[Rfam]
RNA: RNase MRP
Organism: Temnothorax longispinosus
RNA sequence: AAGUUCCCUCGGGAAACACCGCGGAGCCACCAGCGGAGUCUGCAAUGACUCUCUUUAUCGCUCUGAGGAAAGUCCCUGGACCCGUGGCAGAAAGUGCCGUAGCUUAACUUUCUGGCUAUUAUCCUCCGUCGUCUUCGUGAGCUUCAGGGGAGAGGAAGCUUCGGCCGAUCCCUUCACGAUGGGCGCGAGAGUAUUGGUCAAAGUAAAGUAAUGUGUGUUGGAACGUUCUGCUUCUUAUCCUCGGAGAGGAAGUAGCGCGUUGAACCAAACAGGGCUUAUCGUACGAGGAAACU
Numbered sequence: 001a002a003g004u005u006c007c008c009u010c011g012g013g014a015a016a017c018a019c020c021g022c023g024g025a026g027c028c029a030c031c032a033g034c035g036g037a038g039u040c041u042g043c044a045a046u047g048a049c050u051c052u053c054u055u056u057a058u059c060g061c062u063c064u065g066a067g068g069a070a071a072g073u074c075c076c077u078g079g080a081c082c083c084g085u086g087g088c089a090g091a092a093a094g095u096g097c098c099g100u101a102g103c104u105u106a107a108c109u110u111u112c113u114g115g116c117u118a119u120u121a122u123c124c125u126c127c128g129u130c131g132u133c134u135u136c137g138u139g140a141g142c143u144u145c146a147g148g149g150g151a152g153a154g155g156a157a158g159c160u161u162c163g164g165c166c167g168a169u170c171c172c173u174u175c176a177c178g179a180u181g182g183g184c185g186c187g188a189g190a191g192u193a194u195u196g197g198u199c200a201a202a203g204u205a206a207a208g209u210a211a212u213g214u215g216u217g218u219u220g221g222a223a224c225g226u227u228c229u230g231c232u233u234c235u236u237a238u239c240c241u242c243g244g245a246g247a248g249g250a251a252g253u254a255g256c257g258c259g260u261u262g263a264a265c266c267a268a269a270c271a272g273g274g275c276u277u278a279u280c281g282u283a284c285g286a287g288g289a290a291a292c293u
Stems, first nucleotide, its partner, number of pairs: 002293004007288005014218001016216004022065006036051005070277003074274004086098004099119006122188002127185004136178004148172004158165002222261005